Shown here is a 97-nucleotide RNA from Ipomoea nil, a member of the family "Small nucleolar RNA snoR31/Z110/Z27". NCBI's taxonomy places the organism under Eukaryota, Streptophyta, Tracheophyta, Magnoliopsida, Ipomoea. It is annotated as a C/D-box small nucleolar RNA. The match comes from Rfam's covariance-model search (53 bits). The family has 8 seed sequences and 571 matches in Rfam 15.1. Gene Ontology terms of the family: RNA processing and nucleolus.

RNA sequence: AUCAAGGAUGAUGAAAUCAGAAAAAUCUUAGGACACCUUCUGACACAGUAAUGCCAAUUCUGUGUGUGAGAAAAGAUUAUGUUUUUCUGAUCUUGAU
Numbered sequence: 001a002u003c004a005a006g007g008a009u010g011a012u013g014a015a016a017u018c019a020g021a022a023a024a025a026u027c028u029u030a031g032g033a034c035a036c037c038u039u040c041u042g043a044c045a046c047a048g049u050a051a052u053g054c055c056a057a058u059u060c061u062g063u064g065u066g067u068g069a070g071a072a073a074a075g076a077u078u079a080u081g082u083u084u085u086u087c088u089g090a091u092c093u094u095g096a097u
Stems, first nucleotide, its partner, number of pairs: 001097007041047002